[Rfam]
RNA sequence: AUACCUUUUUCGGCCUUUUGGCUAAGAUCAAGUGUAGUAUGUGUUUUGAUCAAUUUAAUACCUGAUUCGUUGUUCAUUAGGCCAGAACGAUAUUAUUUUUUUUUUUCAGGGCACAGAGGGGUCAAAUAGGUAAGCUUGCUUGCUCGACGCUUUCACCACUGCCUUUGUAUUGCACUGUUGUAGAGUGUGGCACAACCCUC
Number, nucleotide and partner (000 for none) at each position: 001a000002u000003a000004c000005c000006u000007u000008u027009u026010u025011c000012g023013g022014c021015c020016u000017u000018u000019u000020g015021g014022c013023u012024a000025a010026g009027a008028u000029c000030a000031a000032g000033u000034g000035u000036a000037g000038u000039a000040u000041g000042u000043g000044u000045u000046u000047u000048g067049a066050u065051c064052a063053a000054u000055u000056u000057a000058a000059u000060a000061c000062c000063u052064g051065a050066u049067u048068c000069g000070u084071u000072g082073u081074u080075c000076a000077u000078u000079a000080g074081g073082c072083c000084a070085g000086a000087a000088c000089g000090a000091u000092a000093u000094u000095a000096u000097u000098u000099u000100u000101u000102u000103u000104u000105u000106u000107c000108a000109g000110g000111g000112c000113a000114c000115a000116g153117a152118g151119g150120g000121g148122u147123c146124a000125a000126a000127u000128a000129g000130g000131u142132a141133a140134g139135c000136u000137u000138g000139c134140u133141u132142g131143c000144u000145c000146g123147a122148c121149g000150c119151u118152u117153u116154c000155a000156c000157c000158a000159c190160u189161g188162c000163c185164u184165u183166u182167g181168u180169a000170u000171u000172g000173c000174a000175c000176u000177g000178u000179u000180g168181u167182a166183g165184a164185g163186u000187g000188u161189g160190g159191c000192a000193c000194a000195a000196c000197c000198c000199u000200c000

The family of this 200-nucleotide sequence from Chara braunii is "U2 spliceosomal RNA".
A search with the family's covariance model found it, with a score of 97 bits.
Gene Ontology terms of the family: mRNA branch site recognition, U2 snRNP and pre-mRNA branch point binding.
It is annotated as a spliceosomal small nuclear RNA.